[Rfam]
RNA sequence: AGAGGUCUACAAGUUUGAGGCCAUAGCAGAAGCACUCGUGGCAUGGCCCUGUCAGAUUCCAGUGAAUUUGUGAAUUCUGCU
Dot-bracket structure: ................[.[[[[..((((((((...........)]]]]]...(((((((....)))))))....)))))))
A member of the RNA family "Mammalian CPEB3 ribozyme" from Crocodylus porosus, 81 nucleotides long. On this family, see Salehi-Ashtiani et al., Science 2006: "A genomewide search for ribozymes reveals an HDV-like sequence in the human CPEB3 gene". It scores 46 bits against the family's covariance model.